[Rfam]
RNA sequence: UGGACCAAUAAUAGGAAAAUGUCUAUGAGGAAAGGGUCAUGAUUAAUCUGGUUCUUUGUAAAAUGCAGAGGUCCAUU
Numbered sequence: 001u002g003g004a005c006c007a008a009u010a011a012u013a014g015g016a017a018a019a020u021g022u023c024u025a026u027g028a029g030g031a032a033a034g035g036g037u038c039a040u041g042a043u044u045a046a047u048c049u050g051g052u053u054c055u056u057u058g059u060a061a062a063a064u065g066c067a068g069a070g071g072u073c074c075a076u077u
Base pairs, nucleotide, nucleotide: 001075002074003073004072005071006070
RNA: Small nucleolar RNA SNORD112
Organism: Mesocricetus auratus